The family of this 114-nucleotide sequence is "Potassium channel RNA editing signal". Gene Ontology term of the family: adenosine to inosine editing. It is annotated as a cis-regulatory element. The base pairs follow the family's consensus structure, which is taken from published work. Rfam's curators put it in the seed alignment. From the family's description: This family represents a group of sequences related to the human potassium channel Kv1.1 hairpin element which directs the efficient modification of an adenosine to inosine by an adenosine deaminase acting on RNA (ADAR).
RNA sequence: CUGGGCUAUGGAGACAUGUACCCGCAGACGUGGUCCGGCAUGCUGGUGGGGGCUCUGUGUGCGCUGGCGGGCGUGCUCACCAUCGCCAUGCCCGUGCCCGUCAUCGUGAACAAU
Numbered sequence: 001c002u003g004g005g006c007u008a009u010g011g012a013g014a015c016a017u018g019u020a021c022c023c024g025c026a027g028a029c030g031u032g033g034u035c036c037g038g039c040a041u042g043c044u045g046g047u048g049g050g051g052g053c054u055c056u057g058u059g060u061g062c063g064c065u066g067g068c069g070g071g072c073g074u075g076c077u078c079a080c081c082a083u084c085g086c087c088a089u090g091c092c093c094g095u096g097c098c099c100g101u102c103a104u105c106g107u108g109a110a111c112a113a114u
Stems, first nucleotide, its partner, number of pairs: 002113001004111001007108005013102003018097004037077004050062001